[Rfam]
RNA sequence: GGCCUGGUGGCAGAGUGGUUAUGCAGCGGACUGCAAAUCCGCGUACGCCGGUUCAAUUCCGACCCAGGCCU
Number, nucleotide and partner (000 for none) at each position: 001g070002g069003c068004c067005u066006g065007g064008u000009g000010g024011c023012a022013g000014a000015g000016u000017g000018g000019u000020u000021a000022u012023g011024c010025a000026g042027c041028g040029g039030a038031c000032u000033g000034c000035a000036a000037a000038u030039c029040c028041g027042c026043g000044u000045a000046c000047g063048c000049c061050g060051g059052u000053u000054c000055a000056a000057u000058u000059c051060c050061g049062a000063c047064c007065c006066a005067g004068g003069c002070c001071u000